[Rfam]
RNA sequence: CAUAGUAGCAGCGAUAGUCGGGUGAGAAUUCCGACGGCCGAACGAGCAAGGGUUCCUCAGCACUGUUCGUCAACUGAGGGUUAGCCGGUCCUAAGUCCCCCCGUAAUUCGAAGGGGACGACAUGGGAAGCUGGUUAAUAUUCCAGCGCUCGUAUGCAACGAAACCGACGCCUCGGGGUCGACCGAGCUGGGCCUUCGCCCAGUCAAAUCAUCCAAAUCCGUGGAAGCCGUAAUGGCAGGAAGCGGACGAACGGUGAGAUAGUGAAAACCGGUUCAACCUGGGGCCCGUGAAAAGGGAGCAUACGAUCCGUACCGAGAUCCGACACAGGUGCUCGUGGCGGCGAAAGCCAAGGCCUGU
Dot-bracket structure: ................((((((.......))))))((((....((((..((...((((((...((.....)).))))))......(((.((...((((((.((.....))..)))))).....))...(((((........)))))..((((((((.......((...((((((((...(((((.(((((........)))))....((((.....(((((....(((.....))).....)))))......)))).....(....).)))))...)))))))).........))..)))))))).)))..)).....((......)).)))).((((.......)))).))))...
Numbered sequence: 001c002a003u004a005g006u007a008g009c010a011g012c013g014a015u016a017g018u019c020g021g022g023u024g025a026g027a028a029u030u031c032c033g034a035c036g037g038c039c040g041a042a043c044g045a046g047c048a049a050g051g052g053u054u055c056c057u058c059a060g061c062a063c064u065g066u067u068c069g070u071c072a073a074c075u076g077a078g079g080g081u082u083a084g085c086c087g088g089u090c091c092u093a094a095g096u097c098c099c100c101c102c103g104u105a106a107u108u109c110g111a112a113g114g115g116g117a118c119g120a121c122a123u124g125g126g127a128a129g130c131u132g133g134u135u136a137a138u139a140u141u142c143c144a145g146c147g148c149u150c151g152u153a154u155g156c157a158a159c160g161a162a163a164c165c166g167a168c169g170c171c172u173c174g175g176g177g178u179c180g181a182c183c184g185a186g187c188u189g190g191g192c193c194u195u196c197g198c199c200c201a202g203u204c205a206a207a208u209c210a211u212c213c214a215a216a217u218c219c220g221u222g223g224a225a226g227c228c229g230u231a232a233u234g235g236c237a238g239g240a241a242g243c244g245g246a247c248g249a250a251c252g253g254u255g256a257g258a259u260a261g262u263g264a265a266a267a268c269c270g271g272u273u274c275a276a277c278c279u280g281g282g283g284c285c286c287g288u289g290a291a292a293a294g295g296g297a298g299c300a301u302a303c304g305a306u307c308c309g310u311a312c313c314g315a316g317a318u319c320c321g322a323c324a325c326a327g328g329u330g331c332u333c334g335u336g337g338c339g340g341c342g343a344a345a346g347c348c349a350a351g352g353c354c355u356g357u
Stems, first nucleotide, its partner, number of pairs: 017035006036354004044333004050313002055079006064072002086309003090125002095118006102110002129146005149305008164295002169284008180273005186203005208256004217246005226236003262267001319328002335349004

Archaeal large subunit ribosomal RNA: a 357-nucleotide part of an RNA from Halomicrobium mukohataei.
For this family Rfam cites "The comparative RNA web (CRW) site: an online database of comparative sequence and structure information for ribosomal, intron, and other RNAs" (Cannone et al., BMC Bioinformatics, 2002).
The sequence is in the family's curated seed alignment.